[Rfam]
RNA sequence: AUACAUAUUUGGCAAACUUAUUGAAAAAUAAGGACGCAAAGCUAUGGGUCUAAAGACUGUACGUCAAUGAUUGCCAGGUUGCCCUC
Number, nucleotide and partner (000 for none) at each position: 001a000002u000003a000004c000005a000006u000007a000008u000009u000010u000011g000012g037013c036014a000015a000016a000017c032018u031019u030020a029021u028022u027023g000024a000025a000026a000027a022028a021029u020030a019031a018032g017033g000034a000035c000036g013037c012038a000039a000040a080041g079042c078043u077044a000045u076046g075047g074048g071049u070050c069051u000052a000053a000054a000055g065056a064057c063058u000059g000060u000061a000062c000063g057064u056065c055066a000067a000068u000069g050070a049071u048072u000073g000074c047075c046076a045077g043078g042079u041080u040081g000082c000083c000084c000085u000086c000

c-di-GMP-I riboswitch aptamer: an 86-nucleotide RNA from Propionispora sp. 2/2-37. Gene Ontology term of the family: cyclic-di-GMP binding.